[Rfam]
RNA sequence: UUGCUUCAGGGAAGAUUAUAAUCCCUCAAAUUUUUCAGCCUUUUCACUUUGUCAGCUCUUUUUCAUUUUUACACGAUUUGCUGAUCAUUUGUGGCUGGGAUAUAU
Numbered sequence: 001u002u003g004c005u006u007c008a009g010g011g012a013a014g015a016u017u018a019u020a021a022u023c024c025c026u027c028a029a030a031u032u033u034u035u036c037a038g039c040c041u042u043u044u045c046a047c048u049u050u051g052u053c054a055g056c057u058c059u060u061u062u063u064c065a066u067u068u069u070u071a072c073a074c075g076a077u078u079u080g081c082u083g084a085u086c087a088u089u090u091g092u093g094g095c096u097g098g099g100a101u102a103u104a105u
Stems, first nucleotide, its partner, number of pairs: 034099006051085006
Annotation
Shown here is a 105-nucleotide sequence from Daucus carota, a member of the family "Small nucleolar RNA snoR99". Rfam links the family to the GO terms nucleolus and RNA processing. On this family, see Marker et al., Curr Biol 2002: "Experimental RNomics: identification of 140 candidates for small non-messenger RNAs in the plant Arabidopsis thaliana". The base pairs follow the family's consensus structure, which was predicted with WAR.